[Rfam]
RNA sequence: UGUGGUGUCAGGACUUAACCCACUUGUGAACACUGCAUUGAACUUCUUUGUUCACAGUGGUUAAGUUCUGCCAUCCUG
Dot-bracket structure: ..........((((((((((.....(((((((................)))))))...))))))))))..........
This 78-nucleotide sequence from Cyprinus carpio belongs to the Rfam family "mir-27 microRNA precursor family". For this family Rfam cites "The developmental miRNA profiles of zebrafish as determined by small RNA cloning" (Chen et al., Genes Dev, 2005). Gene Ontology terms of the family: miRNA-mediated post-transcriptional gene silencing and RISC complex.